[Rfam]
This 63-nucleotide RNA from Polynucleobacter victoriensis belongs to the Rfam family "Betaproteobacteria toxic small RNA". The family's consensus secondary structure was predicted with WAR. It scores 59 bits against the family's covariance model.

RNA sequence: UGUCUCCUCCACCCUCCAAAAAGGUGGAUUUCAGCCCAGGAAGUGUUUCCUGGGCUUUUUUUU
Numbered sequence: 001u002g003u004c005u006c007c008u009c010c011a012c013c014c015u016c017c018a019a020a021a022a023g024g025u026g027g028a029u030u031u032c033a034g035c036c037c038a039g040g041a042a043g044u045g046u047u048u049c050c051u052g053g054g055c056u057u058u059u060u061u062u063u
Stems, first nucleotide, its partner, number of pairs: 008028006033056008
From the family's description: Overexpression in amino aid rich medium attenuates growth, suggesting role in repressing amino acid intake and metabolism. Taxonomically the source falls in Polynucleobacter (Bacteria, Pseudomonadota, Betaproteobacteria, Burkholderiaceae).